[Rfam]
RNA sequence: ACUUAUUCUCAGGGCGGGGCGAAAUUCCCCACCGGCGGUAGGCCCCCAGGGGCAAGCCCGCGAGCGCCCGGCACAGCCGGGGUCAGCAGAUCUGGUCAGAGUCCAGAGCCGACGGUCAUAGUCCGGAUGGAAGAGGAUAAGG
Numbered sequence: 001a002c003u004u005a006u007u008c009u010c011a012g013g014g015c016g017g018g019g020c021g022a023a024a025u026u027c028c029c030c031a032c033c034g035g036c037g038g039u040a041g042g043c044c045c046c047c048a049g050g051g052g053c054a055a056g057c058c059c060g061c062g063a064g065c066g067c068c069c070g071g072c073a074c075a076g077c078c079g080g081g082g083u084c085a086g087c088a089g090a091u092c093u094g095g096u097c098a099g100a101g102u103c104c105a106g107a108g109c110c111g112a113c114g115g116u117c118a119u120a121g122u123c124c125g126g127a128u129g130g131a132a133g134a135g136g137a138u139a140a141g142g
Base pairs, nucleotide, nucleotide: 003140004139005138006137007136008135009134010133017029018028019027031122032121033111034110035061036060037059038058056109057108064087065086091107092106093105094104095103113125114124115123

This 142-nucleotide RNA sequence from Gallaecimonas xiamenensis belongs to the Rfam family "FMN riboswitch aptamer (RFN element)".